[Rfam]
RNA sequence: GAUUGGCGAUGAUGAGGAACUAGUCAUGCACCACUCUGAACUCGGGAGAGUUCUCUCUCUCCUGUUCUUGAUGACAAACAGACUUACUACCCAUUAUCAAUCUGAGCCUACU
Numbered sequence: 001g002a003u004u005g006g007c008g009a010u011g012a013u014g015a016g017g018a019a020c021u022a023g024u025c026a027u028g029c030a031c032c033a034c035u036c037u038g039a040a041c042u043c044g045g046g047a048g049a050g051u052u053c054u055c056u057c058u059c060u061c062c063u064g065u066u067c068u069u070g071a072u073g074a075c076a077a078a079c080a081g082a083c084u085u086a087c088u089a090c091c092c093a094u095u096a097u098c099a100a101u102c103u104g105a106g107c108c109u110a111c112u
Base pairs, nucleotide, nucleotide: 001112005108006107007106
Dot-bracket structure: (...(((..................................................................................................)))...)

This 112-nucleotide RNA belongs to the Rfam family "Small nucleolar RNA Z221/R21b". Rfam 15.1 lists 588 matches to the family in 222 species. Its family is annotated with nucleolus and RNA processing in the Gene Ontology. By type it is a C/D-box small nucleolar RNA.